The family of this 70-nucleotide sequence from Cuculus canorus is "Small nucleolar RNA SNORD24". Taxonomically the source falls in Cuculus (Eukaryota, Chordata, Tetrapoda, Archosauria). Its family is annotated with RNA processing and nucleolus in the Gene Ontology. Rfam 15.1 lists 2,843 matches to the family in 1,188 species. The family's consensus secondary structure was predicted with PFOLD.
[Rfam]
RNA sequence: UGCAGAUGAUGUGAAACGUUUGCUAUCUGAGCUACAGUGCUGACAUGUCACCACCAAGAUCACUGAUGCA
Dot-bracket structure: ((((..............................................................))))
Numbered sequence: 001u002g003c004a005g006a007u008g009a010u011g012u013g014a015a016a017c018g019u020u021u022g023c024u025a026u027c028u029g030a031g032c033u034a035c036a037g038u039g040c041u042g043a044c045a046u047g048u049c050a051c052c053a054c055c056a057a058g059a060u061c062a063c064u065g066a067u068g069c070a
Stems, first nucleotide, its partner, number of pairs: 001070004